[Rfam]
RNA sequence: UAGGUUCCGGUUCACGCCUGCCAUACCGGCGGACGACCCGGGUCC
Numbered sequence: 001u002a003g004g005u006u007c008c009g010g011u012u013c014a015c016g017c018c019u020g021c022c023a024u025a026c027c028g029g030c031g032g033a034c035g036a037c038c039c040g041g042g043u044c045c
Stems, first nucleotide, its partner, number of pairs: 003045002007041004015035002018032005
RNA: L31-Actinobacteria ribosomal protein leader